RNA sequence: GACGGGUCGACACGGAGUGGAUCGGCAGGAGUGGAGGACCCAGCACGACGGAUUGCCGGGCCGUCAGGUCCGAGCAGUCCUUGGGGUGAAGCCGCAUCCGUGCGGCCGGGCAACUUCGCCAGCCCGAAUCCGACAGGUCAUCCUUCACAGGCGGCUGACGAAGGGUUG
Numbered sequence: 001g002a003c004g005g006g007u008c009g010a011c012a013c014g015g016a017g018u019g020g021a022u023c024g025g026c027a028g029g030a031g032u033g034g035a036g037g038a039c040c041c042a043g044c045a046c047g048a049c050g051g052a053u054u055g056c057c058g059g060g061c062c063g064u065c066a067g068g069u070c071c072g073a074g075c076a077g078u079c080c081u082u083g084g085g086g087u088g089a090a091g092c093c094g095c096a097u098c099c100g101u102g103c104g105g106c107c108g109g110g111c112a113a114c115u116u117c118g119c120c121a122g123c124c125c126g127a128a129u130c131c132g133a134c135a136g137g138u139c140a141u142c143c144u145u146c147a148c149a150g151g152c153g154g155c156u157g158a159c160g161a162a163g164g165g166u167u168g
Base pairs, nucleotide, nucleotide: 031148032147033146034145035144036143041083042082084131085130086129092105093104094103095102108125109124110123111122